Overview
The record is a 54-nucleotide sequence from Synaphobranchus kaupii, which matches "UnaL2 LINE 3' element" in Rfam. The organism belongs to Synaphobranchus, within Eukaryota. A search with the family's covariance model found it, with a score of 57 bits.
RNA sequence: CAAUCACAGCCUUGUAUGUCGCUUUGGAUAAAAGCGUCUGCUACAUGACUAAUG
Numbered sequence: 001c002a003a004u005c006a007c008a009g010c011c012u013u014g015u016a017u018g019u020c021g022c023u024u025u026g027g028a029u030a031a032a033a034g035c036g037u038c039u040g041c042u043a044c045a046u047g048a049c050u051a052a053u054g
Stems, first nucleotide, its partner, number of pairs: 013043001014041003020036006